[Rfam]
RNA sequence: GUGAAAUAUCCAUUUGUACCGCAGACAGCAGGGGCGCUAUGCGCUUAAACGAUCCCUGCCGAGGACAUGAGUGAAUUCAGAUGCAUCUUCAUCGAUGAUCCUGACUUUUAUGCCUCUAUGUCUGUAAAGAUAUAGAGGCUUUUUAUGUGCCGU
Numbered sequence: 001g002u003g004a005a006a007u008a009u010c011c012a013u014u015u016g017u018a019c020c021g022c023a024g025a026c027a028g029c030a031g032g033g034g035c036g037c038u039a040u041g042c043g044c045u046u047a048a049a050c051g052a053u054c055c056c057u058g059c060c061g062a063g064g065a066c067a068u069g070a071g072u073g074a075a076u077u078c079a080g081a082u083g084c085a086u087c088u089u090c091a092u093c094g095a096u097g098a099u100c101c102u103g104a105c106u107u108u109u110a111u112g113c114c115u116c117u118a119u120g121u122c123u124g125u126a127a128a129g130a131u132a133u134a135g136a137g138g139c140u141u142u143u144u145a146u147g148u149g150c151c152g153u
Stems, first nucleotide, its partner, number of pairs: 028059006034044003113138010